[Rfam]
RNA sequence: AGAUGAGAGAAACACCCCGUCCGCGGAUCUUCGCGGACGGCGCCGGGUCGGCGCCUCCCCAGCACCGGACCGGCCGUGCCCUCGCGCACACCGGAGCCUCGGGCUCCGGGAUUCUCCACCGGUCGGA
Dot-bracket structure: ...((.(.((......((((((((((....)))))))))).(((((..(((.((.......)).)))..))))).((((......)))).((((((((...))))))))...))).))((....)).
Numbered sequence: 001a002g003a004u005g006a007g008a009g010a011a012a013c014a015c016c017c018c019g020u021c022c023g024c025g026g027a028u029c030u031u032c033g034c035g036g037a038c039g040g041c042g043c044c045g046g047g048u049c050g051g052c053g054c055c056u057c058c059c060c061a062g063c064a065c066c067g068g069a070c071c072g073g074c075c076g077u078g079c080c081c082u083c084g085c086g087c088a089c090a091c092c093g094g095a096g097c098c099u100c101g102g103g104c105u106c107c108g109g110g111a112u113u114c115u116c117c118a119c120c121g122g123u124c125g126g127a
Stems, first nucleotide, its partner, number of pairs: 004118002007115001009114002017040010042074005049067003053063002076089004091109008119126002

A member of the RNA family "Streptomyces RNA 5676" from Streptomyces xinghaiensis, 127 nucleotides long. The family's RNA type in Rfam is small RNA. From the family's description: Identified by deep sequencing of transcriptome at the end of exponential growth phase. Appears longer on northern blot than sequencing transcript. This indicates processing step. Streptomyces specific. The literature on the family includes a 2011 paper in RNA Biol by Vockenhuber et al., "Deep sequencing-based identification of small non-coding RNAs in Streptomyces coelicolor". The source organism's lineage runs through Bacteria, Bacillati, Actinomycetes, Kitasatosporales and Streptomyces. It scores 94 bits against the family's covariance model. Pairs were carried over by alignment from the consensus structure.